MIR1120/MIR1122 microRNA precursor family: an 87-nucleotide RNA from Triticum urartu. A reference for the family is Yao et al. (2007), "Cloning and characterization of microRNAs from wheat (Triticum aestivum L.)", Genome Biol. Lineage of the source: Eukaryota > Poaceae > Triticeae > Triticinae > Triticum. Rfam links the family to the GO terms miRNA-mediated post-transcriptional gene silencing and RISC complex. Rfam 15.1 lists 44,765 matches to the family in 8 species.

RNA sequence: GUACUCCCUCCAUCCCAUAAUGCAAGACGUUUUUUGACACUAGUGUAGUGUCGAAAAGCGUCUUACAUUAUGGGACAGAGGGAGUAC
Numbered sequence: 001g002u003a004c005u006c007c008c009u010c011c012a013u014c015c016c017a018u019a020a021u022g023c024a025a026g027a028c029g030u031u032u033u034u035u036g037a038c039a040c041u042a043g044u045g046u047a048g049u050g051u052c053g054a055a056a057a058g059c060g061u062c063u064u065a066c067a068u069u070a071u072g073g074g075a076c077a078g079a080g081g082g083a084g085u086a087c
Stems, first nucleotide, its partner, number of pairs: 003085003007081004013075005019069004024064018